[Rfam]
The family of this 85-nucleotide RNA sequence from Triticum aestivum is "MIR9657 microRNA precursor family". The organism belongs to Triticum, within Eukaryota. Rfam's curators put it in the seed alignment.
RNA sequence: GCGGCGUGCUGACUCCGUUCGUCGGAGAAGCAUGUUGCGGACCAGCGCCGCGUGCUUCCUCGUCGAACGGUGGCGACCACGUUGC
Numbered sequence: 001g002c003g004g005c006g007u008g009c010u011g012a013c014u015c016c017g018u019u020c021g022u023c024g025g026a027g028a029a030g031c032a033u034g035u036u037g038c039g040g041a042c043c044a045g046c047g048c049c050g051c052g053u054g055c056u057u058c059c060u061c062g063u064c065g066a067a068c069g070g071u072g073g074c075g076a077c078c079a080c081g082u083u084g085c
Stems, first nucleotide, its partner, number of pairs: 001085008010076001013073002015070007023062003027058009037048003